[Rfam]
RNA sequence: AGCCGCUGAUGAAAUUCGAUUCUGCCAAAUGAAUUCCUGUGAUAUUGCCAAUUUCCGUUCCUAUUUUCUCUGAGGUU
Numbered sequence: 001a002g003c004c005g006c007u008g009a010u011g012a013a014a015u016u017c018g019a020u021u022c023u024g025c026c027a028a029a030u031g032a033a034u035u036c037c038u039g040u041g042a043u044a045u046u047g048c049c050a051a052u053u054u055c056c057g058u059u060c061c062u063a064u065u066u067u068c069u070c071u072g073a074g075g076u077u
Base pairs, nucleotide, nucleotide: 001077002076003075004074